[Rfam]
Source information
The family of this 178-nucleotide RNA from Erinaceus europaeus is "Small nucleolar RNA SNORA23". From the family's description: The members of this family belong to the H/ACA class of snoRNAs which are thought to guide the sites of modification of uridines to pseudouridines. This family includes human snoRNA ACA23 (SNORA23) and mouse snoMBI-1. ACA23 is predicted to guide the pseudouridylation of residue U3737 and U4331 of 28S rRNA. For this family Rfam cites "RNomics: an experimental approach that identifies 201 candidates for novel, small, non-messenger RNAs in mouse" (Huttenhofer et al., EMBO J, 2001). By type it is an H/ACA-box small nucleolar RNA. Its family is annotated with RNA processing and nucleolus in the Gene Ontology.

RNA sequence: UUAUGACUUAAUGCACAGUUUCCAUCUGUCUGAUAGCAGUGCCUGUAUUUUGCAUUCAGAUCUUGCUGUCCACACAAACAGUAGGCAGCCAGAGAGUAAGUUGGAAUCAUAGUUUUGGCCUGGUGUUGUCACUUUAGACACUUUUAGUACUGGUCAGUGUCCAGAUUCCCACGCACAG
Numbered sequence: 001u002u003a004u005g006a007c008u009u010a011a012u013g014c015a016c017a018g019u020u021u022c023c024a025u026c027u028g029u030c031u032g033a034u035a036g037c038a039g040u041g042c043c044u045g046u047a048u049u050u051u052g053c054a055u056u057c058a059g060a061u062c063u064u065g066c067u068g069u070c071c072a073c074a075c076a077a078a079c080a081g082u083a084g085g086c087a088g089c090c091a092g093a094g095a096g097u098a099a100g101u102u103g104g105a106a107u108c109a110u111a112g113u114u115u116u117g118g119c120c121u122g123g124u125g126u127u128g129u130c131a132c133u134u135u136a137g138a139c140a141c142u143u144u145u146a147g148u149a150c151u152g153g154u155c156a157g158u159g160u161c162c163a164g165a166u167u168c169c170c171a172c173g174c175a176c177a178g
Base pairs, nucleotide, nucleotide: 013086014085027076028075029074031072032071034068035067036066037065038064039063041057044054045053046052102171103170104169106167115157116156117155118154119153120152122151123150124149125148128141129140132137
Dot-bracket structure: ............((............(((.((.((((((.(..(((.....)))..).....))))))..)).)))........))...............(((.(........((((((.((((..((..(....)..))......)))))))))).........).))).......